[Rfam]
RNA sequence: CCUGCCCCAGCUUGUGUUGCAGGCGUGGCUGCAGUGCCACGUUUGUGUCAUUCAGUGGCAGAGAGGAUAAGAUGAGGUCUUCCCCUGGUGCUCUGACCUACAUGGGCUCCCAGGAUUGCUCAACAACC
Numbered sequence: 001c002c003u004g005c006c007c008c009a010g011c012u013u014g015u016g017u018u019g020c021a022g023g024c025g026u027g028g029c030u031g032c033a034g035u036g037c038c039a040c041g042u043u044u045g046u047g048u049c050a051u052u053c054a055g056u057g058g059c060a061g062a063g064a065g066g067a068u069a070a071g072a073u074g075a076g077g078u079c080u081u082c083c084c085c086u087g088g089u090g091c092u093c094u095g096a097c098c099u100a101c102a103u104g105g106g107c108u109c110c111c112a113g114g115a116u117u118g119c120u121c122a123a124c125a126a127c128c
Stems, first nucleotide, its partner, number of pairs: 002061005007055001010052001014048002019046004024041006068125001071124001073122004081115003087111002090107004
This 128-nucleotide RNA sequence from Formicarius rufipectus belongs to the Rfam family "Small nucleolar RNA SNORA17". NCBI's taxonomy places the organism under Eukaryota, Metazoa, Sauria, Theropoda, Formicarius. On this family, see Ofengand and Bakin, J Mol Biol 1997: "Mapping to nucleotide resolution of pseudouridine residues in large subunit ribosomal RNAs from representative eukaryotes, prokaryotes, archaebacteria, mitochondria and chloroplasts". Rfam classes the family as an H/ACA-box small nucleolar RNA. Rfam's curators write: snoRNA ACA 17 belongs to the H/ACA family of snoRNAs and is predicted to guide pseudouridylation of the 28S rRNA at positions U4659 and U4598. Pairs were carried over by alignment from the consensus structure, which was predicted with RNAalifold. Rfam links the family to the GO terms nucleolus and RNA processing. A search with the family's covariance model found it, with a score of 65 bits.